[Rfam]
Overview:
Small nucleolar RNA SNORD121A: an 82-nucleotide RNA from Gulo gulo. NCBI's taxonomy places the organism under Eukaryota, Teleostomi, Mammalia, Mustelidae, Gulo. A search with the family's covariance model found it, with a score of 66 bits. Rfam links the family to the GO terms nucleolus and RNA processing. The family has 26 seed sequences and 881 matches in Rfam 15.1.

RNA sequence: CUGGGAGAGACAAUGAUGCUUUAUAUCCAAGCACAUAUCUGAGUUAUAUGUGUGGAUAGAACUAAAACUGAGUCUUUUCUAC
Numbered sequence: 001c002u003g004g005g006a007g008a009g010a011c012a013a014u015g016a017u018g019c020u021u022u023a024u025a026u027c028c029a030a031g032c033a034c035a036u037a038u039c040u041g042a043g044u045u046a047u048a049u050g051u052g053u054g055g056a057u058a059g060a061a062c063u064a065a066a067a068c069u070g071a072g073u074c075u076u077u078u079c080u081a082c
Base pairs, nucleotide, nucleotide: 002081003080004079005078006077008075009074010073011072
For this family Rfam cites "snoSeeker: an advanced computational package for screening of guide and orphan snoRNA genes in the human genome" (Yang et al., Nucleic Acids Res, 2006).